[Rfam]
Nucleotides: 073
Stems, first nucleotide, its partner, number of pairs: 001072007010025003027043005049065005
Number, partner (000 for none) and nucleotide at each position: 001072g002071c003070g004069c005068u006067c007066g008000u009000a010025g011024c012023c013000c014000a015000a016000c017000g018000g019000c020000a021000g022000a023012g024011g025010c026000a027043g028042c029041g030040g031039c032000u033000u034000u035000a036000g037000g038000u039031g040030c041029c042028g043027c044000c045000c046000a047000g048000u049065g050064u051063g052062a053061g054000u055000u056000c057000g058000a059000a060000u061053c062052u063051c064050a065049c066007c067006g068005a069004g070003c071002g072001c073000a

The record is a 73-nucleotide RNA from Nocardioides jejuensis, which matches "tRNA" in Rfam. It is annotated as a transfer RNA. For this family Rfam cites "The tertiary structure of tRNA and the development of the genetic code" (Hou, Trends Biochem Sci, 1993). The match comes from Rfam's covariance-model search (56 bits).